[Rfam]
RNA sequence: UUCUUAUCAAGAGCAGGCGGAGGGACGAGCCCGAUGAAGCCCGGCAACCGACCUGGAGGAUAUCUGUCUUCCUUCAGGCACGGUGCUAAUUCUUGCAGCUAUAGGCUGAGAGAUAAGAA
Numbered sequence: 001u002u003c004u005u006a007u008c009a010a011g012a013g014c015a016g017g018c019g020g021a022g023g024g025a026c027g028a029g030c031c032c033g034a035u036g037a038a039g040c041c042c043g044g045c046a047a048c049c050g051a052c053c054u055g056g057a058g059g060a061u062a063u064c065u066g067u068c069u070u071c072c073u074u075c076a077g078g079c080a081c082g083g084u085g086c087u088a089a090u091u092c093u094u095g096c097a098g099c100u101a102u103a104g105g106c107u108g109a110g111a112g113a114u115a116a117g118a119a
Base pairs, nucleotide, nucleotide: 001119002118003117004116005115006114007113008112013042016041017040018039022032023031024030026095027094028093029092043087044086045085046084048083049082050079052077091111096108097107098106099105100104
A member of the RNA family "SAM riboswitch aptamer (S box leader)" from Falsibacillus pallidus, 119 nucleotides long. Gene Ontology term of the family: regulation of gene expression.